[Rfam]
RNA sequence: AUCCCGAAGUUUGUGUCCGGGUAAUGACACAUACCUCCCUGUUGGACUGGCCGGACCUUGGUGUCCGGCCUUUUUU
Numbered sequence: 001a002u003c004c005c006g007a008a009g010u011u012u013g014u015g016u017c018c019g020g021g022u023a024a025u026g027a028c029a030c031a032u033a034c035c036u037c038c039c040u041g042u043u044g045g046a047c048u049g050g051c052c053g054g055a056c057c058u059u060g061g062u063g064u065c066c067g068g069c070c071u072u073u074u075u076u
Stems, first nucleotide, its partner, number of pairs: 012031006049070008
RNA: Singlet oxygen resistance RNA X
Organism: Sulfitobacter sediminilitoris